[Rfam]
RNA sequence: CGAACCGGUAGAGGCGCGUCUUUCAUAAGUAUCCGGAAUCAGACUGCCAAGGUCGUAAAAAUCCGCGGGAAAGGGACAGACGCCGAAGGGAAUGCAUGGCAAGCGUUGCCCUGGGCGCAUGGCUGAACAAGCAUGCGACUGUCAUCAUUGUACUAUGAUGGAGUGCUAUGGAGACG
Numbered sequence: 001c002g003a004a005c006c007g008g009u010a011g012a013g014g015c016g017c018g019u020c021u022u023u024c025a026u027a028a029g030u031a032u033c034c035g036g037a038a039u040c041a042g043a044c045u046g047c048c049a050a051g052g053u054c055g056u057a058a059a060a061a062u063c064c065g066c067g068g069g070a071a072a073g074g075g076a077c078a079g080a081c082g083c084c085g086a087a088g089g090g091a092a093u094g095c096a097u098g099g100c101a102a103g104c105g106u107u108g109c110c111c112u113g114g115g116c117g118c119a120u121g122g123c124u125g126a127a128c129a130a131g132c133a134u135g136c137g138a139c140u141g142u143c144a145u146c147a148u149u150g151u152a153c154u155a156u157g158a159u160g161g162a163g164u165g166c167u168a169u170g171g172a173g174a175c176g
Stems, first nucleotide, its partner, number of pairs: 006171001008169004016083006023076002032068002034065004039060001087112004091107005113140002116137006142161007
A member of the RNA family "Lysine riboswitch aptamer" from Anaerotruncus colihominis, 176 nucleotides long. Gene Ontology term of the family: lysine biosynthetic process. Taxonomically the source falls in Anaerotruncus (Bacteria, Bacillota, Clostridia, Eubacteriales). Pairs were carried over by alignment from the consensus structure, which is taken from published work.